[Rfam]
RNA: msiK RNA
Organism: Cryobacterium tepidiphilum
RNA sequence: CUACAAAUCCCAUCACUCGGAUCGUCCGGCACGUACCUGCCGGUGAAGGAGAAUACA
Number, nucleotide and partner (000 for none) at each position: 001c000002u000003a000004c000005a000006a000007a000008u000009c049010c048011c000012a000013u046014c045015a044016c000017u000018c000019g000020g000021a000022u000023c000024g000025u000026c043027c042028g041029g040030c039031a038032c000033g000034u000035a000036c000037c000038u031039g030040c029041c028042g027043g026044u015045g014046a013047a000048g010049g009050a000051g000052a000053a000054u000055a000056c000057a000